[Rfam]
RNA sequence: CCUGCUGUCUCACUAAUAGUUCCCUACCUGACUGUGCGUUGAGAGUAAUUUCGGCGUGCAAAGCGUCAGGGACAACGUAGCCGAACGAUUCGCGAGAGUCAAUCCCAAACUGCCAGCCGCAGGCGGUGAAGGCG
Numbered sequence: 001c002c003u004g005c006u007g008u009c010u011c012a013c014u015a016a017u018a019g020u021u022c023c024c025u026a027c028c029u030g031a032c033u034g035u036g037c038g039u040u041g042a043g044a045g046u047a048a049u050u051u052c053g054g055c056g057u058g059c060a061a062a063g064c065g066u067c068a069g070g071g072a073c074a075a076c077g078u079a080g081c082c083g084a085a086c087g088a089u090u091c092g093c094g095a096g097a098g099u100c101a102a103u104c105c106c107a108a109a110c111u112g113c114c115a116g117c118c119g120c121a122g123g124c125g126g127u128g129a130a131g132g133c134g
Base pairs, nucleotide, nucleotide: 002019003018004017006015007014028069029068030067031066032065033060034059035058036057037056038055039054040053041052042051043050044049083104084103090097091096109127110126111125112124113123114122
Rfam assigns this 134-nucleotide sequence from Xenorhabdus szentirmaii to the family "Group II catalytic intron D1-D4-7". Group II introns are found in rRNA, tRNA and mRNA of organelles in fungi, plants and protists, and also in mRNA in bacteria. The pairing is the family consensus, mapped onto this sequence.